RNA: Nuclear RNase P
Organism: Dothideomycetidae sp. 11243
RNA sequence: GUCCUCGCCAACGCUGCGUUUCUUUGCUCACACACAGACACGAUCCUGCUCACGCAGAUUCAGUCCUAUCAUGCAAAUGAGAAAUUCGGAGUAAUCUUCACCCUUCAUCAUCCCAGACGCCGUAUUCGUAUGGCCCUGGGCACUGGUGACUGCCCGCGAGGGCCCGGCGUGAAUCUCACGCCCGCAUCCGGCAUCAGAAAAUUCAGGGCGCUUCCGUUUGUCAUGUGUCCCUCGGGAUCGUGGCUUCAGGUUUUGUCCUAUGGGAGCUGGCGCGAAGAUGGUAUGCUCUAUAAGAGCAGUACUUUAGUGCAAUACGCGGCGUUCCGGAGAUCCUGUCUUCCAAAGACGGUCAAUGGUUCCAUUCGAUUCCGAUCACUCUGGCGAGGAC
Numbered sequence: 001g002u003c004c005u006c007g008c009c010a011a012c013g014c015u016g017c018g019u020u021u022c023u024u025u026g027c028u029c030a031c032a033c034a035c036a037g038a039c040a041c042g043a044u045c046c047u048g049c050u051c052a053c054g055c056a057g058a059u060u061c062a063g064u065c066c067u068a069u070c071a072u073g074c075a076a077a078u079g080a081g082a083a084a085u086u087c088g089g090a091g092u093a094a095u096c097u098u099c100a101c102c103c104u105u106c107a108u109c110a111u112c113c114c115a116g117a118c119g120c121c122g123u124a125u126u127c128g129u130a131u132g133g134c135c136c137u138g139g140g141c142a143c144u145g146g147u148g149a150c151u152g153c154c155c156g157c158g159a160g161g162g163c164c165c166g167g168c169g170u171g172a173a174u175c176u177c178a179c180g181c182c183c184g185c186a187u188c189c190g191g192c193a194u195c196a197g198a199a200a201a202u203u204c205a206g207g208g209c210g211c212u213u214c215c216g217u218u219u220g221u222c223a224u225g226u227g228u229c230c231c232u233c234g235g236g237a238u239c240g241u242g243g244c245u246u247c248a249g250g251u252u253u254u255g256u257c258c259u260a261u262g263g264g265a266g267c268u269g270g271c272g273c274g275a276a277g278a279u280g281g282u283a284u285g286c287u288c289u290a291u292a293a294g295a296g297c298a299g300u301a302c303u304u305u306a307g308u309g310c311a312a313u314a315c316g317c318g319g320c321g322u323u324c325c326g327g328a329g330a331u332c333c334u335g336u337c338u339u340c341c342a343a344a345g346a347c348g349g350u351c352a353a354u355g356g357u358u359c360c361a362u363u364c365g366a367u368u369c370c371g372a373u374c375a376c377u378c379u380g381g382c383g384a385g386g387a388c
Stems, first nucleotide, its partner, number of pairs: 001388004008381003013320007023077004037065002087371005096277004152163004166182005188270005206259003321359001324356003